[Rfam]
RNA sequence: UUCUUAUCCAGAGUGGCGGAGGGACUGGCCCAAUGAAACCCGACAACCAGCACAAUGUGUAUGGUGUCAAUUCCAGCAGAGAUCAUCUGUAAAGAUAAGAA
Numbered sequence: 001u002u003c004u005u006a007u008c009c010a011g012a013g014u015g016g017c018g019g020a021g022g023g024a025c026u027g028g029c030c031c032a033a034u035g036a037a038a039c040c041c042g043a044c045a046a047c048c049a050g051c052a053c054a055a056u057g058u059g060u061a062u063g064g065u066g067u068c069a070a071u072u073c074c075a076g077c078a079g080a081g082a083u084c085a086u087c088u089g090u091a092a093a094g095a096u097a098a099g100a101a
Base pairs, nucleotide, nucleotide: 001101002100003099004098005097006096007095008094013041015040016039021031022030023029025076026075027074028073042068043067044066045065047064048063050060051059052058053057072093077089078088079087080086
SAM riboswitch aptamer (S box leader): a 101-nucleotide RNA sequence from Sporolactobacillus shoreae. About the family: The SAM riboswitch is found upstream of a number of genes which code for proteins involved in methionine or cysteine biosynthesis in Gram-positive bacteria. The family's consensus secondary structure is taken from published work. The match comes from Rfam's covariance-model search (79 bits).